[Rfam]
Shown here is an 89-nucleotide RNA sequence from Ectocarpus siliculosus, a member of the family "tRNA".
It scores 56 bits against the family's covariance model.
Taxonomically the source falls in Ectocarpus (Eukaryota, Ochrophyta, Phaeophyceae, Ectocarpaceae).
RNA sequence: CUCGACAUAGCUCAGCCCGGUAGAGCGACAGACUGUAGUGGUAAACCGUGGUGAUCUGUUGGUCCUUGGUUCGAAUCCGAGUGUCGAGA
Numbered sequence: 001c002u003c004g005a006c007a008u009a010g011c012u013c014a015g016c017c018c019g020g021u022a023g024a025g026c027g028a029c030a031g032a033c034u035g036u037a038g039u040g041g042u043a044a045a046c047c048g049u050g051g052u053g054a055u056c057u058g059u060u061g062g063u064c065c066u067u068g069g070u071u072c073g074a075a076u077c078c079g080a081g082u083g084u085c086g087a088g089a
Base pairs, nucleotide, nucleotide: 001088002087003086004085005084006083007082010026011025012024013023028059029058030057031056032055065081066080067079068078069077